[Rfam]
Rfam assigns this 115-nucleotide RNA from Hibiscus syriacus to the family "mir-399 microRNA precursor family". The base pairs follow the family's consensus structure, which was predicted with PFOLD. Rfam describes the family as follows. mir-399 was identified in both Arabidopsis thaliana and Oryza sativa computationally and was later experimentally verified. mir-399 is thought to target mRNAs coding for a phosphatase transporter. The mature sequence is excised from the 3' arm of the hairpin.
RNA sequence: AGAAGAAUAACAGUGCAGUUCUCUUUUGGCAGAAAUAUUACACAUUGCACUUGUAGUUGUGGGGAAAAAAAUAAUGCAAUCAUCCGCCAAAGGAGAAUUGCCCUGCAAUUCAAUG
Numbered sequence: 001a002g003a004a005g006a007a008u009a010a011c012a013g014u015g016c017a018g019u020u021c022u023c024u025u026u027u028g029g030c031a032g033a034a035a036u037a038u039u040a041c042a043c044a045u046u047g048c049a050c051u052u053g054u055a056g057u058u059g060u061g062g063g064g065a066a067a068a069a070a071a072u073a074a075u076g077c078a079a080u081c082a083u084c085c086g087c088c089a090a091a092g093g094a095g096a097a098u099u100g101c102c103c104u105g106c107a108a109u110u111c112a113a114u115g
Stems, first nucleotide, its partner, number of pairs: 005111004011105003015101005021095004027089004032084002